[Rfam]
RNA sequence: GCGACGCCGGCGGGAGAGAACUCGCACGAUCCUGUGCGAGGACGCCGAAGGGGCAAUUCUCCCCAGAACCUCUCAGGCUCCCGGACCGCCCGGUCGAG
Numbered sequence: 001g002c003g004a005c006g007c008c009g010g011c012g013g014g015a016g017a018g019a020a021c022u023c024g025c026a027c028g029a030u031c032c033u034g035u036g037c038g039a040g041g042a043c044g045c046c047g048a049a050g051g052g053g054c055a056a057u058u059c060u061c062c063c064c065a066g067a068a069c070c071u072c073u074c075a076g077g078c079u080c081c082c083g084g085a086c087c088g089c090c091c092g093g094u095c096g097a098g
Base pairs, nucleotide, nucleotide: 007092009090010089011088012087013086021041022040044078045077046076047074048073051072052071053070057065
Record summary:
The family of this 98-nucleotide sequence from Allobranchiibius huperziae is "Glycine riboswitch aptamer".